RNA sequence: ACUGCUUUUCUUUGAUGUCCCCAUAUUGAGGAGCCCGAUAGCCAUUUGAUUCUUUCAUGCUAUCGGGUUUUUUGUG
Dot-bracket structure: ...............................(((((((((((................))))))))))).......

Source information
This 76-nucleotide sequence from Lucilia cuprina belongs to the Rfam family "RybB RNA". The family's RNA type in Rfam is small RNA. The source organism's lineage runs through Eukaryota, Eumetazoa, Panorpida, Oestroidea and Lucilia. It scores 69 bits against the family's covariance model.